[Rfam]
Shown here is a 78-nucleotide RNA from Photobacterium proteolyticum, a member of the family "Group II catalytic intron D1-D4-1". Rfam's curators write: Group II introns are found in rRNA, tRNA and mRNA of organelles in fungi, plants and protists, and also in mRNA in bacteria. Gene Ontology term of the family: Group II intron splicing. NCBI's taxonomy places the organism under Bacteria, Pseudomonadota, Gammaproteobacteria, Vibrionales, Photobacterium.
RNA sequence: CUAGGUUAGCAGUGAUGUUGAACGAAGAUUGAUAAGAAGUCAGCAGAGGGCAUAGUACCGACAAGAGUAGGGAAGGCC
Numbered sequence: 001c002u003a004g005g006u007u008a009g010c011a012g013u014g015a016u017g018u019u020g021a022a023c024g025a026a027g028a029u030u031g032a033u034a035a036g037a038a039g040u041c042a043g044c045a046g047a048g049g050g051c052a053u054a055g056u057a058c059c060g061a062c063a064a065g066a067g068u069a070g071g072g073a074a075g076g077c078c
Stems, first nucleotide, its partner, number of pairs: 001027002004023001006021006040047002049078003058071002061068002